[Rfam]
RNA sequence: UGGCGCCCAGCUUGGAUCAAGAACGGGGGAUUUCGUGAGGGACGCCAUUCGAGGAGCUGGCACAGAAGUUAGAAUAGAAGAUCGGUCAACGCGGGAACCUGCUGCAUUUUCCGGGCCUCGGUAAGUGAAUGGCGAUUAUGGGUCAGGAAAUAAGCCAACAUGAAAUGUUUGUUGAAAAUUUAAGUAAGGCUUUAAAGACAUGAGUAGUAAAGGUUAAAAUUAAGGAUUUGUGUCAAUGUUUUGAAUAUAUUAAACAAGUUU
Numbered sequence: 001u002g003g004c005g006c007c008c009a010g011c012u013u014g015g016a017u018c019a020a021g022a023a024c025g026g027g028g029g030a031u032u033u034c035g036u037g038a039g040g041g042a043c044g045c046c047a048u049u050c051g052a053g054g055a056g057c058u059g060g061c062a063c064a065g066a067a068g069u070u071a072g073a074a075u076a077g078a079a080g081a082u083c084g085g086u087c088a089a090c091g092c093g094g095g096a097a098c099c100u101g102c103u104g105c106a107u108u109u110u111c112c113g114g115g116c117c118u119c120g121g122u123a124a125g126u127g128a129a130u131g132g133c134g135a136u137u138a139u140g141g142g143u144c145a146g147g148a149a150a151u152a153a154g155c156c157a158a159c160a161u162g163a164a165a166u167g168u169u170u171g172u173u174g175a176a177a178a179u180u181u182a183a184g185u186a187a188g189g190c191u192u193u194a195a196a197g198a199c200a201u202g203a204g205u206a207g208u209a210a211a212g213g214u215u216a217a218a219a220u221u222a223a224g225g226a227u228u229u230g231u232g233u234c235a236a237u238g239u240u241u242u243g244a245a246u247a248u249a250u251u252a253a254a255c256a257a258g259u260u261u
Stems, first nucleotide, its partner, number of pairs: 006029003014024001034044003081122003085116001086114002091105004126145003130142001133140002151194003154190003201243004207237002211229005

The record is a 261-nucleotide sequence from Octodon degus, which matches "Mason-Pfizer monkey virus packaging signal" in Rfam. This family represents a group of sequences that are related to the Mason-Pfizer monkey virus (MPMV) packaging signal. The match comes from Rfam's covariance-model search (110 bits).